[Rfam]
RNA sequence: UGUGUAGAGGUAAGAAAUAUGCUGUGUUCUCGCUUGGUAUAUUUCUUGCCUCUACCAAU
Numbered sequence: 001u002g003u004g005u006a007g008a009g010g011u012a013a014g015a016a017a018u019a020u021g022c023u024g025u026g027u028u029c030u031c032g033c034u035u036g037g038u039a040u041a042u043u044u045c046u047u048g049c050c051u052c053u054a055c056c057a058a059u
Base pairs, nucleotide, nucleotide: 002056006053007052008051009050010049011048012047013046014045015044016043017042021038022037023036
RNA: mir-7398 microRNA precursor family